[Rfam]
RNA: SAM riboswitch aptamer (S box leader)
RNA sequence: CUCUUAUCCAGAGUGGUGGAGGGACUGGCCCGAUGAAACCCGGCAACCGCCUGUAAAGGAAUGGUGCCAAAUCCUGCAGGGAUGAUUCCUGGGAGAUAAGAG
Numbered sequence: 001c002u003c004u005u006a007u008c009c010a011g012a013g014u015g016g017u018g019g020a021g022g023g024a025c026u027g028g029c030c031c032g033a034u035g036a037a038a039c040c041c042g043g044c045a046a047c048c049g050c051c052u053g054u055a056a057a058g059g060a061a062u063g064g065u066g067c068c069a070a071a072u073c074c075u076g077c078a079g080g081g082a083u084g085a086u087u088c089c090u091g092g093g094a095g096a097u098a099a100g101a102g
Base pairs, nucleotide, nucleotide: 001102002101003100004099005098006097007096008095013041015040016039017038021031022030023029025076027074028073042068043067044066045065047064048063050059051058052057072094077091078090079089080088081087082086